[Rfam]
RNA: Alphaproteobacterial sRNA BjrC1505
RNA sequence: UCACCCCUUGUUAAGGGUUCAUUAAGCUUUACGAGCGUUUACUAUGCAUAUCCAGUGAUCUGGAUUCUUACCGAGUGGUUGGAGCCACUUUGUUUGACGCCUCCCUGUUAAACUCCUGAGAGCCGCCUCAUCGCGGCUCUUUUUUU
Numbered sequence: 001u002c003a004c005c006c007c008u009u010g011u012u013a014a015g016g017g018u019u020c021a022u023u024a025a026g027c028u029u030u031a032c033g034a035g036c037g038u039u040u041a042c043u044a045u046g047c048a049u050a051u052c053c054a055g056u057g058a059u060c061u062g063g064a065u066u067c068u069u070a071c072c073g074a075g076u077g078g079u080u081g082g083a084g085c086c087a088c089u090u091u092g093u094u095u096g097a098c099g100c101c102u103c104c105c106u107g108u109u110a111a112a113c114u115c116c117u118g119a120g121a122g123c124c125g126c127c128u129c130a131u132c133g134c135g136g137c138u139c140u141u142u143u144u145u146u
Base pairs, nucleotide, nucleotide: 002046003045005017006016018041024038026036027035028034051064052063053062054061073090074089075088076087077086078085096109097108098107099106118141119140120139121138122137123136124135125134126133